A member of the RNA family "Small nucleolar RNA SNORA8" from Colius striatus, 139 nucleotides long.
RNA sequence: UGCACUGUGUGGUAUCUGCACCCAGCAGCACACUCCUGAUGGGAUGUUCAAAGAACAGUGCUACAGUAGUUCAGCGUUUGGCAUUGUUGGUUUGCAGUCUGCUGUGCCUGGUAAACCUGGUAUUUUUGCUGAUACAGCC
Number, nucleotide and partner (000 for none) at each position: 001u000002g061003c060004a059005c058006u057007g056008u000009g000010u000011g000012g000013u000014a000015u054016c053017u052018g047019c046020a045021c000022c043023c042024a040025g000026c038027a037028g036029c000030a000031c000032a000033c000034u000035c000036c028037u027038g026039a000040u024041g000042g023043g022044a000045u020046g019047u018048u000049c000050a000051a000052a017053g016054a015055a000056c007057a006058g005059u004060g003061c002062u000063a000064c128065a127066g126067u000068a124069g123070u122071u120072c119073a118074g117075c000076g000077u000078u000079u000080g108081g107082c106083a105084u104085u000086g000087u000088u000089g000090g000091u000092u000093u000094g000095c000096a000097g000098u000099c000100u000101g000102c000103u000104g084105u083106g082107c081108c080109u000110g000111g000112u000113a000114a000115a000116c000117c074118u073119g072120g071121u000122a070123u069124u068125u000126u066127u065128g064129c000130u000131g000132a000133u000134a000135c000136a000137g000138c000139c000

Lineage of the source: Eukaryota > Bilateria > Saurischia > Coliidae > Colius. ACA8 is a member of the H/ACA class of snoRNA that guide the sites of modification of uridines to pseudouridines.